Rfam assigns this 102-nucleotide sequence from Peribacillus faecalis to the family "Purine riboswitch aptamer".
Rfam links the family to the GO term purine nucleobase biosynthetic process.
Taxonomically the source falls in Peribacillus (Bacteria, Bacillati, Bacillota, Caryophanales).
RNA sequence: CUACAAUAAAUGAUAGUCUCUUGUAUAAUCUUGGGGAUAUGGCCCAUAAGUUUCUACCUGAUUACCGUAAAUAAUCAGACUAUGAGAGGAAGUACAUACUAU
Dot-bracket structure: .................((((((((...(..((((.......))))..)........(((((((.......)))))))..))))))))..............
Numbered sequence: 001c002u003a004c005a006a007u008a009a010a011u012g013a014u015a016g017u018c019u020c021u022u023g024u025a026u027a028a029u030c031u032u033g034g035g036g037a038u039a040u041g042g043c044c045c046a047u048a049a050g051u052u053u054c055u056a057c058c059u060g061a062u063u064a065c066c067g068u069a070a071a072u073a074a075u076c077a078g079a080c081u082a083u084g085a086g087a088g089g090a091a092g093u094a095c096a097u098a099c100u101a102u
Stems, first nucleotide, its partner, number of pairs: 018088008029049001032046004058078007